[Rfam]
RNA sequence: AUCCCCGUCGUAGGCGCCCCGCUUAGUGGCGCCGCCAGAGCUGUCGCGCACGGCGUGAGAGUCCUGGAGGACGGGGUUAAUUAUGCAACAGGGAACCUACCCGGUUUCCCCUU
Numbered sequence: 001a002u003c004c005c006c007g008u009c010g011u012a013g014g015c016g017c018c019c020c021g022c023u024u025a026g027u028g029g030c031g032c033c034g035c036c037a038g039a040g041c042u043g044u045c046g047c048g049c050a051c052g053g054c055g056u057g058a059g060a061g062u063c064c065u066g067g068a069g070g071a072c073g074g075g076g077u078u079a080a081u082u083a084u085g086c087a088a089c090a091g092g093g094a095a096c097c098u099a100c101c102c103g104g105u106u107u108c109c110c111c112u113u
Base pairs, nucleotide, nucleotide: 001077002076003075004074005073007072008071009070013033014032015031016030017029018028019026035067036066037065038064040062041061042060044058045057046056047055048054049053085108087106088105089104091102092101093100
This 113-nucleotide RNA from Orthohepacivirus hominis belongs to the Rfam family "J750 non-coding RNA (containing SLSL761 and SL783)".
It is one of the family's seed sequences.
It is annotated as a cis-regulatory element.
The source organism's lineage runs through Viruses, Riboviria, Amarillovirales, Hepatitis C virus genotype 2 and Hepatitis C virus subtype 2a.